This 75-nucleotide RNA sequence from Streptococcus pneumoniae belongs to the Rfam family "Streptococcus sRNA SpR14". The sequence is in the family's curated seed alignment. The family's consensus secondary structure was predicted with mfold. The source organism's lineage runs through Bacteria, Bacilli, Streptococcaceae, Streptococcus and Streptococcus pneumoniae.

RNA sequence: UUCUCAUGAAAAAAUUCUCUUUUCAUACUCAUUUAAAAUCAAAAAGGGAAUUUAUCGUUUUACGGACAUGUAUAU
Numbered sequence: 001u002u003c004u005c006a007u008g009a010a011a012a013a014a015u016u017c018u019c020u021u022u023u024c025a026u027a028c029u030c031a032u033u034u035a036a037a038a039u040c041a042a043a044a045a046g047g048g049a050a051u052u053u054a055u056c057g058u059u060u061u062a063c064g065g066a067c068a069u070g071u072a073u074a075u
Stems, first nucleotide, its partner, number of pairs: 008061003012053012